[Rfam]
Nucleotides: 092
Base pairs, nucleotide, nucleotide: 005085006084007083008082009081010080011079012078015039016038020032021031022030023029042064043063044062045060046059047058048057049056065077066076067075068074
Number, partner (000 for none) and nucleotide at each position: 001000g002000a003000a004000a005085c006084c007083u008082c009081a010080u011079c012078u013000u014000g015039c016038u017000c018000g019000c020032c021031g022030c023029c024000a025000u026000c027000c028000g029023g030022g031021c032020g033000c034000c035000a036000g037000a038016a039015g040000c041000a042064g043063u044062g045060c046059u047058u048057c049056c050000c051000c052000c053000g054000a055000u056049g057048g058047a059046a060045g061000a062044c063043a064042c065077a066076g067075g068074c069000a070000c071000u072000c073000c074068g075067c076066c077065u078012g079011g080010a081009u082008g083007a084006g085005g086000a087000g088000a089000g090000a091000g092000g